The family of this 84-nucleotide RNA sequence from Lentivirus humimdef1 is "HIV gag stem loop 3 (GSL3)".
RNA sequence: GGCCGGGGGGAAAGAAACAAUAUAGAAUAAAACAUCUAGUAUGGGCAAGCAGGGAGCUAGAACGAUUUGCAAUAGAUCCUGGCC
Numbered sequence: 001g002g003c004c005g006g007g008g009g010g011a012a013a014g015a016a017a018c019a020a021u022a023u024a025g026a027a028u029a030a031a032a033c034a035u036c037u038a039g040u041a042u043g044g045g046c047a048a049g050c051a052g053g054g055a056g057c058u059a060g061a062a063c064g065a066u067u068u069g070c071a072a073u074a075g076a077u078c079c080u081g082g083c084c
Base pairs, nucleotide, nucleotide: 001084002083003082004081005080006079007078008077
Source information:
For this family Rfam cites "RNA interactions in the 5' region of the HIV-1 genome" (Damgaard et al., J Mol Biol, 2004). Its family is annotated with viral RNA genome packaging in the Gene Ontology. This family consists of several HIV gag stem loop 3 (GSL3) sequences. GSL3 is known to direct specific packaging of HIV-1 genomic RNA. Deletion of GSL3 leads to decreases in both viral RNA packaging and dimerisation.